[Rfam]
RNA sequence: AAGUCACUUCAAAAAGGGCUUGUGGGACCAAAACCAGGAGCUCUUAAAUGCUGUGGCCAAAGAUUGAAAUUCUCCAAAGGAUGUGAUAGUCACUCAAUUGGGCUGUGUUUUCCUGAGGAGAUAGAAGC
Numbered sequence: 001a002a003g004u005c006a007c008u009u010c011a012a013a014a015a016g017g018g019c020u021u022g023u024g025g026g027a028c029c030a031a032a033a034c035c036a037g038g039a040g041c042u043c044u045u046a047a048a049u050g051c052u053g054u055g056g057c058c059a060a061a062g063a064u065u066g067a068a069a070u071u072c073u074c075c076a077a078a079g080g081a082u083g084u085g086a087u088a089g090u091c092a093c094u095c096a097a098u099u100g101g102g103c104u105g106u107g108u109u110u111u112c113c114u115g116a117g118g119a120g121a122u123a124g125a126a127g128c
Base pairs, nucleotide, nucleotide: 003057004056005055006054007053014045015044016043017042018041019040020039021038023037026035071121072120073119074118075117078114079113080112081111086106087105088104089103091102093100
Shown here is a 128-nucleotide RNA from Eschrichtius robustus, a member of the family "Small nucleolar RNA SNORA25".
It is annotated as an H/ACA-box small nucleolar RNA.
The base pairs follow the family's consensus structure, which was predicted with RNAfold.
Taxonomically the source falls in Eschrichtius (Eukaryota, Chordata, Teleostomi, Laurasiatheria).
From the family's description: ACA25 is a member of the H/ACA class of snoRNA that guide the sites of modification of uridines to pseudouridines.